This 149-nucleotide RNA sequence from Paenibacillus hemerocallicola belongs to the Rfam family "c-di-AMP riboswitch aptamer (ydaO/yuaA leader)".

[Rfam]
RNA sequence: UUACAAAACAGGCCGAAUCCGGAAUAUUCCGAAUAUCCGGUACGGGGGACUUCUUUAAAUUGGGGUGAAUGUUCGCGCUUUUCGGCGGACAAGGGAACAACCUCUUCCCUAACCCGUCAACUAACCUCGGAGGCAGCAGGAGGGAACCU
Number, nucleotide and partner (000 for none) at each position: 001u000002u000003a000004c000005a000006a000007a000008a000009c000010a000011g000012g134013c133014c132015g000016a000017a000018u000019c040020c039021g038022g037023a036024a000025u000026a000027u000028u000029c000030c000031g000032a000033a000034u000035a000036u023037c022038c021039g020040g019041u000042a000043c129044g128045g127046g126047g125048g000049a000050c000051u000052u000053c062054u000055u000056u000057a000058a000059a000060u000061u000062g053063g115064g114065g113066u000067g000068a000069a000070u000071g090072u089073u088074c087075g086076c085077g000078c000079u000080u000081u000082u000083c000084g000085g076086c075087g074088g073089a072090c071091a000092a000093g109094g108095g107096a106097a000098c000099a000100a000101c000102c000103u000104c000105u000106u096107c095108c094109c093110u000111a000112a000113c065114c064115c063116g000117u000118c000119a000120a000121c000122u000123a000124a000125c047126c046127u045128c044129g043130g000131a000132g014133g013134c012135a000136g000137c000138a000139g000140g000141a000142g000143g000144g000145a000146a000147c000148c000149u000
It scores 71 bits against the family's covariance model. This family represents a conserved RNA structure found upstream of the ydaO and yuaA genes in Bacillus subtilis and related genes in other bacteria. Its family is annotated with regulation of gene expression and cyclic-di-AMP binding in the Gene Ontology.